[Rfam]
RNA sequence: UCGCUUUAGCUGGUUGAUUUCGGGUCAAAUUGUCAUUAACUAUCAUUUGGUCCCCUUCAACCAGCUGUAGUUG
Numbered sequence: 001u002c003g004c005u006u007u008a009g010c011u012g013g014u015u016g017a018u019u020u021c022g023g024g025u026c027a028a029a030u031u032g033u034c035a036u037u038a039a040c041u042a043u044c045a046u047u048u049g050g051u052c053c054c055c056u057u058c059a060a061c062c063a064g065c066u067g068u069a070g071u072u073g
Base pairs, nucleotide, nucleotide: 003071004070005069008066009065010064011063012062013061014060015059016058017057022052023051025050026049027048028047029046030045
Dot-bracket structure: ..(((..((((((((((....((.((((((..............))))))))....))))))))))..)))..